The family of this 75-nucleotide RNA from Jacana jacana is "Small nucleolar RNA SNORD59". Rfam 15.1 lists 1,355 matches to the family in 620 species. By type it is a C/D-box small nucleolar RNA. The family's consensus secondary structure was predicted with ILM.
RNA sequence: CCUUCGCUGAUGAGUAACCAGUUGACUUUCGUUCUUCUGAGCUUGCUGAAGCCACGUUUUAUGGGUCGGAGGAGG
Dot-bracket structure: (((.(.................................................................).)))